[Rfam]
RNA sequence: CUAGCAAAGCGAAUGCUGCCAAAGACAGCAGGUGCCGUAAGGCAUAAGUUUGAAAACGCCUGCCGAGGAAGAUUAUAAGCGCGCUCUUAUGAGCAUUUCUUAUAGUGAUUUACGCCUCUUUGUCUUUUGGACGAAGGGGCGUUUCCUUUUUCUAAG
Number, nucleotide and partner (000 for none) at each position: 001c000002u000003a000004g000005c000006a000007a000008a000009g000010c000011g000012a000013a000014u000015g000016c000017u000018g000019c000020c000021a000022a000023a000024g000025a000026c000027a000028g063029c062030a061031g060032g059033u058034g043035c042036c041037g000038u000039a000040a000041g036042g035043c034044a000045u000046a000047a000048g000049u000050u000051u000052g000053a000054a000055a000056a000057c000058g033059c032060c031061u030062g029063c028064c000065g000066a000067g000068g000069a000070a000071g000072a000073u000074u000075a000076u000077a000078a000079g000080c000081g000082c000083g000084c000085u000086c000087u000088u000089a000090u000091g000092a000093g000094c000095a000096u000097u000098u000099c000100u000101u000102a000103u000104a000105g000106u000107g000108a000109u000110u000111u000112a000113c141114g140115c139116c138117u137118c136119u135120u134121u133122g132123u131124c130125u129126u000127u000128u000129g125130g124131a123132c122133g121134a120135a119136g118137g117138g116139g115140c114141g113142u000143u000144u000145c000146c000147u000148u000149u000150u000151u000152c000153u000154a000155a000156g000

This 156-nucleotide RNA from Catenibacillus scindens belongs to the Rfam family "Ribosomal protein L10 leader". NCBI's taxonomy places the organism under Bacteria, Bacillota, Clostridia, Lachnospiraceae, Catenibacillus. By type it is a cis-regulatory leader. It scores 66 bits against the family's covariance model. Its family is annotated with regulation of gene expression in the Gene Ontology.